[Rfam]
RNA sequence: UUUUUAGCAUAAGUAUAUCCCAUACAACAUCUGGGAUAUACUUACACUAAAA
Numbered sequence: 001u002u003u004u005u006a007g008c009a010u011a012a013g014u015a016u017a018u019c020c021c022a023u024a025c026a027a028c029a030u031c032u033g034g035g036a037u038a039u040a041c042u043u044a045c046a047c048u049a050a051a052a
Stems, first nucleotide, its partner, number of pairs: 006048002010044003014040003018036004
RNA: mir-1302 microRNA precursor family
Organism: Ursus americanus